[Rfam]
RNA sequence: GUUGGGAUGAUGACUUCAGUCGUCGGAUACCCCUUCACUCCUUUUCAUGAGUGAAACAGAACAGUCUGACAAAC
Dot-bracket structure: (((.(................................................................).)))

This 74-nucleotide RNA from Carlito syrichta belongs to the Rfam family "Small nucleolar RNA SNORD101". The family's RNA type in Rfam is C/D-box small nucleolar RNA. A reference for the family is Vitali et al. (2003), "Identification of 13 novel human modification guide RNAs", Nucleic Acids Res. Clan: SNORD101 clan.